c-di-AMP riboswitch aptamer (ydaO/yuaA leader): a 209-nucleotide sequence from Paenibacillus catalpae. Taxonomically the source falls in Paenibacillus (Bacteria, Bacillati, Bacillota, Bacilli). The family has 106 seed sequences and 7,607 matches in Rfam 15.1.

RNA sequence: UUCCAGUUUACGCUUAAUCUCCGGAAGCGGAGAGCGGGGGAACCAACGUCGGCAGAUGCAUGGUUAAGACGACUUAGAGCAUCGGCGGCGCAUUGAAUUCUUCAGGGGUGAAUUUUGCGGCGAUUGCCAUGAGCAUUCGAUCCGUGGAUAGGGCAGCUCUCUCGCCCGAACCCGUCAGCUAACCUCGUAAGCGCGUAUAGAGAGCGAUC
Numbered sequence: 001u002u003c004c005a006g007u008u009u010a011c012g013c014u015u016a017a018u019c020u021c022c023g024g025a026a027g028c029g030g031a032g033a034g035c036g037g038g039g040g041a042a043c044c045a046a047c048g049u050c051g052g053c054a055g056a057u058g059c060a061u062g063g064u065u066a067a068g069a070c071g072a073c074u075u076a077g078a079g080c081a082u083c084g085g086c087g088g089c090g091c092a093u094u095g096a097a098u099u100c101u102u103c104a105g106g107g108g109u110g111a112a113u114u115u116u117g118c119g120g121c122g123a124u125u126g127c128c129a130u131g132a133g134c135a136u137u138c139g140a141u142c143c144g145u146g147g148a149u150a151g152g153g154c155a156g157c158u159c160u161c162u163c164g165c166c167c168g169a170a171c172c173c174g175u176c177a178g179c180u181a182a183c184c185u186c187g188u189a190a191g192c193g194c195g196u197a198u199a200g201a202g203a204g205c206g207a208u209c
Stems, first nucleotide, its partner, number of pairs: 011193004018033005034188006044105001106173003114148007151167004
Dot-bracket structure: ..........((((...(((((......)))))((((((....(............................................................)(((.....(((((((.....................)))))))..((((.........))))...))).........)))))).))))................